[Rfam]
RNA sequence: GCCUCCGAUGAUGAUGAAAACAUAACUUUCGUUCUUCCGAGAUUUUAUCAUGCGGAGAAUUUAUGGAGACCUGAACUGAGUGGAGGC
Numbered sequence: 001g002c003c004u005c006c007g008a009u010g011a012u013g014a015u016g017a018a019a020a021c022a023u024a025a026c027u028u029u030c031g032u033u034c035u036u037c038c039g040a041g042a043u044u045u046u047a048u049c050a051u052g053c054g055g056a057g058a059a060u061u062u063a064u065g066g067a068g069a070c071c072u073g074a075a076c077u078g079a080g081u082g083g084a085g086g087c
Stems, first nucleotide, its partner, number of pairs: 003085004

Shown here is an 87-nucleotide RNA from Brassica rapa, a member of the family "Small nucleolar RNA Z159/U59". Rfam classes the family as a C/D-box small nucleolar RNA. The literature on the family includes a 2003 paper in Nucleic Acids Res by Chen et al., "The high diversity of snoRNAs in plants: identification and comparative study of 120 snoRNA genes from Oryza sativa". The family has 10 seed sequences and 1,401 matches in Rfam 15.1. Gene Ontology terms of the family: nucleolus and RNA processing.